The record is a 429-nucleotide RNA sequence from Rubripirellula amarantea, which matches "Bacterial RNase P class A" in Rfam. Taxonomically the source falls in Rubripirellula (Bacteria, Planctomycetota, Planctomycetia, Pirellulaceae). A search with the family's covariance model found it, with a score of 286 bits.

RNA sequence: CCAGUGGGCGGGACGGUCGCUGGACUGUCGUCUUCGAGGCGGCGGUCGGGAGGAAAGUCCGGGCUCCGCAGGACAGGAUGGUUGAUAACGUCAACCGGCCGCGAGGCUAGGGAAAGUGCAACAGAAAGUAGACCGCCACGGCUUGCCGUGGUAAGGGUGAAACGGUGCGGUAAGAGCGCACCAGCGGUCGAGGUGACUCGAUCGGCUAGGUAAACCCCAUCCGGAGCUAGACCAAACAGAAUGGAGGAGGACACGCGAUCGGGUUUCGGCCCGAAAGAGGUGUCUUCCACGAAGCGGUCCGUUUCGUUACCACAUUCGGGUAGGUCGCAAUUGAGGCGGCGAGCGAUCGCCGUGCACAGAUAAAUGACCGUCGGCGGGAGCGAUCUUCGCUUCCCGUCACAGAACCCGGCUUACAAGCCCACUGGUGAU
Numbered sequence: 001c002c003a004g005u006g007g008g009c010g011g012g013a014c015g016g017u018c019g020c021u022g023g024a025c026u027g028u029c030g031u032c033u034u035c036g037a038g039g040c041g042g043c044g045g046u047c048g049g050g051a052g053g054a055a056a057g058u059c060c061g062g063g064c065u066c067c068g069c070a071g072g073a074c075a076g077g078a079u080g081g082u083u084g085a086u087a088a089c090g091u092c093a094a095c096c097g098g099c100c101g102c103g104a105g106g107c108u109a110g111g112g113a114a115a116g117u118g119c120a121a122c123a124g125a126a127a128g129u130a131g132a133c134c135g136c137c138a139c140g141g142c143u144u145g146c147c148g149u150g151g152u153a154a155g156g157g158u159g160a161a162a163c164g165g166u167g168c169g170g171u172a173a174g175a176g177c178g179c180a181c182c183a184g185c186g187g188u189c190g191a192g193g194u195g196a197c198u199c200g201a202u203c204g205g206c207u208a209g210g211u212a213a214a215c216c217c218c219a220u221c222c223g224g225a226g227c228u229a230g231a232c233c234a235a236a237c238a239g240a241a242u243g244g245a246g247g248a249g250g251a252c253a254c255g256c257g258a259u260c261g262g263g264u265u266u267c268g269g270c271c272c273g274a275a276a277g278a279g280g281u282g283u284c285u286u287c288c289a290c291g292a293a294g295c296g297g298u299c300c301g302u303u304u305c306g307u308u309a310c311c312a313c314a315u316u317c318g319g320g321u322a323g324g325u326c327g328c329a330a331u332u333g334a335g336g337c338g339g340c341g342a343g344c345g346a347u348c349g350c351c352g353u354g355c356a357c358a359g360a361u362a363a364a365u366g367a368c369c370g371u372c373g374g375c376g377g378g379a380g381c382g383a384u385c386u387u388c389g390c391u392u393c394c395c396g397u398c399a400c401a402g403a404a405c406c407c408g409g410c411u412u413a414c415a416a417g418c419c420c421a422c423u424g425g426u427g428a429u
Base pairs, nucleotide, nucleotide: 001425002424003423004422005421006420007419008418009417011414012372013371014370015369016368017367018366020050021049023047024046025045026044027043028042029041030040031039055412056411057410059409060408061407062406063405064226065225066224067223071305072304073303076222077221078220079219080218081095082094083093084092085091096110097108098107099106100105111217112216116215117214118211119210133156134155135152136151137150138149139148140147141146164182165181166180167179168178169177184206185204186203187202188201189200190199191198192197230326231325232324233323239317240316241315242314243313296310300306335355336353337352338351339350340349341348342347